[Rfam]
RNA: SAM-I/IV (S-adenosyl methionine) riboswitch aptamer
RNA sequence: GCUGUGCAUCAAGAGCGGGGCGAUAGCCCCCACCAACCUGCCAAACCCGGCAAGGUGGUCGCCCGCAAGGGGAUGUGGCCGGUUCGGCAAAGAAUGGGUUUGCA
Numbered sequence: 001g002c003u004g005u006g007c008a009u010c011a012a013g014a015g016c017g018g019g020g021c022g023a024u025a026g027c028c029c030c031c032a033c034c035a036a037c038c039u040g041c042c043a044a045a046c047c048c049g050g051c052a053a054g055g056u057g058g059u060c061g062c063c064c065g066c067a068a069g070g071g072g073a074u075g076u077g078g079c080c081g082g083u084u085c086g087g088c089a090a091a092g093a094a095u096g097g098g099u100u101u102g103c104a
Base pairs, nucleotide, nucleotide: 006076007075008074009073010072015031017030018029019028020027021026032059033058034057037055038054039053040051041050042049044100045099046098047097048096078088079087080086081085